About this RNA: The record is an 89-nucleotide RNA sequence from Candidatus Erwinia dacicola, which matches "CopA-like RNA" in Rfam. By type it is an antisense RNA. For this family Rfam cites "Structural analysis of an RNA molecule involved in replication control of plasmid R1" (Gerhart et al., Nucleic Acids Res, 1986). Rfam's curators write: In several groups of bacterial plasmids, antisense RNAs regulate copy number through inhibition of replication initiator protein synthesis. These RNAs are characterised by a long hairpin structure interrupted by several unpaired residues or bulged loops. In plasmid R1, the inhibitory complex between the antisense RNA (CopA) and its target mRNA (CopT) is characterised by a four-way junction structure and a side-by-side helical alignment.
RNA sequence: AUAGAGUAACAGCUUCUAUACAGCUUUGAAUGGCCCCGGUUAAUCUUCUCAGUCGCCAAACUUAAGGAAGGUUAUCGGGGUUUUUGCUU
Numbered sequence: 001a002u003a004g005a006g007u008a009a010c011a012g013c014u015u016c017u018a019u020a021c022a023g024c025u026u027u028g029a030a031u032g033g034c035c036c037c038g039g040u041u042a043a044u045c046u047u048c049u050c051a052g053u054c055g056c057c058a059a060a061c062u063u064a065a066g067g068a069a070g071g072u073u074a075u076c077g078g079g080g081u082u083u084u085u086g087c088u089u
Stems, first nucleotide, its partner, number of pairs: 001019005028089002032082008041074007